Rfam assigns this 234-nucleotide RNA to the family "IS605-orfB-I RNA". The family's consensus secondary structure is taken from published work.
RNA sequence: GCUGCGUAAAUGCUAUUUAGCCCAAGAGAGCUAGUAUCAUCCCUGCGUUGGCAUAAAUCUCAUAAUAGAACGAUAUGGUAAAGUGGAUUGUAACCCCUUGAGAAUAUAAAAAUAUUUAAGAGAGAAGUCCAACAGUUAUAUCGCAAUGGUUAGCCGUAUGACCGCAGGAGAAUUACCUGAAACACGAUGAAAUAAUGAGGAUUCAUUAGAAAUCGCAUUAUUUUUUACGGUUCU
Numbered sequence: 001g002c003u004g005c006g007u008a009a010a011u012g013c014u015a016u017u018u019a020g021c022c023c024a025a026g027a028g029a030g031c032u033a034g035u036a037u038c039a040u041c042c043c044u045g046c047g048u049u050g051g052c053a054u055a056a057a058u059c060u061c062a063u064a065a066u067a068g069a070a071c072g073a074u075a076u077g078g079u080a081a082a083g084u085g086g087a088u089u090g091u092a093a094c095c096c097c098u099u100g101a102g103a104a105u106a107u108a109a110a111a112a113u114a115u116u117u118a119a120g121a122g123a124g125a126a127g128u129c130c131a132a133c134a135g136u137u138a139u140a141u142c143g144c145a146a147u148g149g150u151u152a153g154c155c156g157u158a159u160g161a162c163c164g165c166a167g168g169a170g171a172a173u174u175a176c177c178u179g180a181a182a183c184a185c186g187a188u189g190a191a192a193u194a195a196u197g198a199g200g201a202u203u204c205a206u207u208a209g210a211a212a213u214c215g216c217a218u219u220a221u222u223u224u225u226u227a228c229g230g231u232u233c234u
Stems, first nucleotide, its partner, number of pairs: 001052002004048005010040003014036002017034005022028001071143008083133002085130005096122001098120001147164005153231006159184001166178003169174001189224009199214002
Rfam's curators put it in the seed alignment.